[Rfam]
RNA sequence: UUGCAUCGAACAGGAGUUAAAUCUUUGAAUUCGCCAAUUAUGAGUUGGGUGCUUUAAUCGUUCAGCCAUAGUUGC
Numbered sequence: 001u002u003g004c005a006u007c008g009a010a011c012a013g014g015a016g017u018u019a020a021a022u023c024u025u026u027g028a029a030u031u032c033g034c035c036a037a038u039u040a041u042g043a044g045u046u047g048g049g050u051g052c053u054u055u056a057a058u059c060g061u062u063c064a065g066c067c068a069u070a071g072u073u074g075c
Stems, first nucleotide, its partner, number of pairs: 003075003007071001010026001012024003040069003044066008
Plastid-ycf2 5UTR RNA: a 75-nucleotide RNA sequence from Adiantum capillus-veneris. Lineage of the source: Eukaryota > Viridiplantae > Polypodiopsida > Pteridaceae > Adiantum. The match comes from Rfam's covariance-model search (71 bits). From the family's description: Plastid ycf2 is a non-coding RNA (ncRNA) recognised in plastids. It was found in the prime untranslated region (5UTR) of ycf2 genes, it presents a tRNA-like motif which suggests it can be involved in mRNA maturation, particularly involved in defining the precise 5' end of the transcript. On this family, see Richter et al., Plant Commun 2023: "Retrograde signaling in plants: A critical review focusing on the GUN pathway and beyond".